Rfam assigns this 100-nucleotide sequence from Aerococcus kribbianus to the family "S10-Clostridia ribosomal protein leader".

[Rfam]
RNA sequence: AAGGAGCUUUGAUGCGUAAGGUUGCGACACACCCGGGAGCAUUGCCAUUGGGGUGCGCCGGUUUUUACGCGGAGCAAGUCAAAUUAUUAAAUUGUGACGA
Numbered sequence: 001a002a003g004g005a006g007c008u009u010u011g012a013u014g015c016g017u018a019a020g021g022u023u024g025c026g027a028c029a030c031a032c033c034c035g036g037g038a039g040c041a042u043u044g045c046c047a048u049u050g051g052g053g054u055g056c057g058c059c060g061g062u063u064u065u066u067a068c069g070c071g072g073a074g075c076a077a078g079u080c081a082a083a084u085u086a087u088u089a090a091a092u093u094g095u096g097a098c099g100a
Base pairs, nucleotide, nucleotide: 014070015069016068018066019065020064021063025060026059028057078098079097080096083095084094086092
The family's RNA type in Rfam is cis-regulatory leader. The base pairs follow the family's consensus structure, which is taken from published work.